The family of this 126-nucleotide RNA from Otolemur garnettii is "U4atac minor spliceosomal RNA".
The family's RNA type in Rfam is spliceosomal small nuclear RNA.
The source organism's lineage runs through Eukaryota, Bilateria, Deuterostomia, Gnathostomata and Otolemur.
The base pairs follow the family's consensus structure, which is taken from published work.
Rfam describes the family as follows. U4atac is an essential component of the minor U12-type spliceosome complex which is required for removal of the rarer class of eukaryotic introns (AT-AC, U12-type).
A reference for the family is Lorkovic et al. (2005), "Evolutionary conservation of minor U12-type spliceosome between plants and humans", RNA.
Rfam 15.1 lists 1,648 matches to the family in 818 species.
The family is grouped with related families in Rfam's "U4 clan".
[Rfam]
RNA sequence: ACCAUCCUUUUUUGGGGGUUUGUGCUACGGUCCGAUGAGCGCAUAGUGAGGGCAGUACUGUUAACACCUACACGACACGCUCACAUCAACUAGAGCUUCGCUUUUAUUGGUGCAGUUUUUGGAAAA
Dot-bracket structure: .....((((.....))))...(((..((.((((.....((.....))..)))).))..)))......................(((((...(((((...)))))...)))))..............